RNA sequence: ACAGAGGAUCCCGAAAAUCUGAAAACAGAGUAGGGG
Numbered sequence: 001a002c003a004g005a006g007g008a009u010c011c012c013g014a015a016a017a018u019c020u021g022a023a024a025a026c027a028g029a030g031u032a033g034g035g036g
Stems, first nucleotide, its partner, number of pairs: 002021004010035003
The record is a 36-nucleotide sequence, which matches "DUF805b RNA" in Rfam. By type it is a cis-regulatory element.